[Rfam]
RNA: c-di-AMP riboswitch aptamer (ydaO/yuaA leader)
RNA sequence: GCAGCGGCAGCGCCGAAUCCGCCUCAGCGCGGAACCGGGGACCCAUAACCGCCGGAAGUCCAGGAAACGAUCCUGGACGAGCGUUUCCGGCACCCGGGGUGAAUCGGUGCGCCUCUCCCGGCCAUCCGGUGAGAGCCGCCGUAGGGCGGCUUCCACGCCCGAACCCGUCAGCUAACCCGGUAGGCGGCAUGGAAGUCGAGGA
Numbered sequence: 001g002c003a004g005c006g007g008c009a010g011c012g013c014c015g016a017a018u019c020c021g022c023c024u025c026a027g028c029g030c031g032g033a034a035c036c037g038g039g040g041a042c043c044c045a046u047a048a049c050c051g052c053c054g055g056a057a058g059u060c061c062a063g064g065a066a067a068c069g070a071u072c073c074u075g076g077a078c079g080a081g082c083g084u085u086u087c088c089g090g091c092a093c094c095c096g097g098g099g100u101g102a103a104u105c106g107g108u109g110c111g112c113c114u115c116u117c118c119c120g121g122c123c124a125u126c127c128g129g130u131g132a133g134a135g136c137c138g139c140c141g142u143a144g145g146g147c148g149g150c151u152u153c154c155a156c157g158c159c160c161g162a163a164c165c166c167g168u169c170a171g172c173u174a175a176c177c178c179g180g181u182a183g184g185c186g187g188c189a190u191g192g193a194a195g196u197c198g199a200g201g202a
Base pairs, nucleotide, nucleotide: 011186012185013184014183018033019032020031021030022029034181035180036179037178038177039176044096097166098165099164105141106140107139108138144160145159146158147157